Rfam assigns this 107-nucleotide RNA from Artemisia annua to the family "Plant small nucleolar RNA R71". Lineage of the source: Eukaryota > Streptophytina > Tracheophyta > Pentapetalae > Artemisia. Rfam classes the family as a C/D-box small nucleolar RNA. Gene Ontology terms of the family: RNA processing and nucleolus.

RNA sequence: AAGCUAUGAUGAGGGACUUUUCAGAGUACAUAUUUGAAAUGAGUCCAUGCAUCAUAUAGAGAUUCAUCAUGAUGUUGUUGGAACAUCAAGAUGUCAUUUUUGAGUGG
Number, nucleotide and partner (000 for none) at each position: 001a000002a000003g105004c104005u102006a101007u000008g000009a000010u000011g000012a000013g000014g000015g000016a000017c000018u000019u000020u000021u000022c000023a000024g000025a000026g000027u000028a000029c000030a000031u000032a000033u000034u000035u000036g000037a000038a000039a000040u000041g000042a000043g000044u000045c000046c000047a000048u000049g000050c000051a000052u000053c000054a000055u000056a000057u074058a073059g000060a000061g000062a000063u000064u000065c000066a000067u000068c000069a000070u000071g000072a000073u058074g057075u000076u000077g000078u000079u000080g000081g000082a000083a000084c000085a000086u000087c000088a000089a000090g000091a000092u000093g000094u000095c000096a000097u000098u000099u000100u000101u006102g005103a000104g004105u003106g000107g000
Record summary:
The base pairs follow the family's consensus structure, which was predicted with PFOLD.